[Rfam]
Nucleotides: 070
Base pairs, nucleotide, nucleotide: 003068004067005066006065007064009062010061011060012059013058017054018053020051021050023048024047025046026045027044028043029042
Number, partner (000 for none) and nucleotide at each position: 001000u002000c003068c004067g005066g006065u007064c008000c009062u010061c011060g012059g013058u014000a015000g016000u017054g018053g019000c020051c021050c022000c023048c024047g025046g026045a027044g028043c029042u030000c031000g032000c033000c034000c035000u036000c037000g038000u039000g040000g041000c042029g043028g044027c045026u046025c047024c048023g049000a050021g051020g052000a053018c054017c055000a056000c057000g058013g059012u060011c061010g062009a063000a064007g065006a066005c067004c068003g069000u070000c

About this RNA:
Rfam assigns this 70-nucleotide sequence from Cellulomonas composti to the family "Actino-pnp RNA". The source organism's lineage runs through Bacteria, Actinomycetes, Micrococcales, Cellulomonadaceae and Cellulomonas. The match comes from Rfam's covariance-model search (48 bits). By type it is a cis-regulatory element. Pairs were carried over by alignment from the consensus structure, which is taken from published work.